[Rfam]
RNA sequence: UCGGGAAAUUCAGCCUCCCGGUUCUUCACGGAUAGACGGUGUCCCGUCCAAGCGCUGG
Numbered sequence: 001u002c003g004g005g006a007a008a009u010u011c012a013g014c015c016u017c018c019c020g021g022u023u024c025u026u027c028a029c030g031g032a033u034a035g036a037c038g039g040u041g042u043c044c045c046g047u048c049c050a051a052g053c054g055c056u057g058g
Stems, first nucleotide, its partner, number of pairs: 001021006010058005035048005
RNA: chrB-b RNA
Organism: Ramlibacter sp. WS9